[Rfam]
This 52-nucleotide sequence from Ahrensia sp. R2A130 belongs to the Rfam family "ffh sRNA". A search with the family's covariance model found it, with a score of 58 bits. By type it is a small RNA. For this family Rfam cites "Identification of candidate structured RNAs in the marine organism 'Candidatus Pelagibacter ubique'" (Meyer et al., BMC Genomics, 2009). The source organism's lineage runs through Bacteria, Pseudomonadati, Pseudomonadota, Alphaproteobacteria and Ahrensia.

RNA sequence: CUUGCCGGAGGUCACCACCCGCCAGCGCGAUGCGCCCGUGGGUGCGAUUUGC
Number, nucleotide and partner (000 for none) at each position: 001c000002u000003u000004g000005c000006c000007g000008g000009a000010g000011g000012u000013c000014a000015c000016c044017a043018c042019c041020c040021g039022c038023c000024a000025g035026c034027g033028c032029g000030a000031u000032g028033c027034g026035c025036c000037c000038g022039u021040g020041g019042g018043u017044g016045c000046g000047a000048u000049u000050u000051g000052c000